[Rfam]
RNA: Small nucleolar RNA SNORA42/SNORA80 family
Organism: Nomascus leucogenys
RNA sequence: GCAUAGGUUUGGAUUUAUGACAGGCCCAUCCCCCUGGACCUCUCAUAGUGCCCCAUGCCAGAGCAAACUGUGGCCCCGAACCAUUGCCUGUACCUCUGGGCCACUGGCACUGAAGAGGGUUACACAGUG
Numbered sequence: 001g002c003a004u005a006g007g008u009u010u011g012g013a014u015u016u017a018u019g020a021c022a023g024g025c026c027c028a029u030c031c032c033c034c035u036g037g038a039c040c041u042c043u044c045a046u047a048g049u050g051c052c053c054c055a056u057g058c059c060a061g062a063g064c065a066a067a068c069u070g071u072g073g074c075c076c077c078g079a080a081c082c083a084u085u086g087c088c089u090g091u092a093c094c095u096c097u098g099g100g101c102c103a104c105u106g107g108c109a110c111u112g113a114a115g116a117g118g119g120u121u122a123c124a125c126a127g128u129g
Stems, first nucleotide, its partner, number of pairs: 001058004006052003015048006022041003025037002071122006082112002087107002089103002093099002